[Rfam]
RNA sequence: GGUUGUAAGUUCGAAGCUGUAGCAGAAGUGCCCAUAGCGUGGCCUGUUAGAUUCCAGUGAAUCUGCAAAUUCUGCU
Numbered sequence: 001g002g003u004u005g006u007a008a009g010u011u012c013g014a015a016g017c018u019g020u021a022g023c024a025g026a027a028g029u030g031c032c033c034a035u036a037g038c039g040u041g042g043c044c045u046g047u048u049a050g051a052u053u054c055c056a057g058u059g060a061a062u063c064u065g066c067a068a069a070u071u072c073u074g075c076u
Stems, first nucleotide, its partner, number of pairs: 013044001016043003021076007028040003048065007

Shown here is a 76-nucleotide sequence from Alligator mississippiensis, a member of the family "Mammalian CPEB3 ribozyme". The base pairs follow the family's consensus structure, which is taken from published work. A search with the family's covariance model found it, with a score of 39 bits. Rfam's curators write: The mammalian CPEB3 ribozyme is a self cleaving RNA located in the second intron of the CPEB3 gene which belongs to a family of genes regulating messenger RNA polyadenylation.